[Rfam]
RNA sequence: AUGGGUGUCUUACCAGACAUGGUUAGAUCUGGGUCUUUCUGUCUAAUACUGUCUGGUAAUGCCGUCCAU
Dot-bracket structure: .((((((.(((((((((((..((((((..............))))))..)))))))))).).)))))).
Shown here is a 69-nucleotide RNA from Diceros bicornis, a member of the family "mir-8/mir-141/mir-200 microRNA precursor family". It scores 63 bits against the family's covariance model. Gene Ontology terms of the family: RISC complex and miRNA-mediated post-transcriptional gene silencing. On this family, see Lagos-Quintana et al., Science 2001: "Identification of novel genes coding for small expressed RNAs".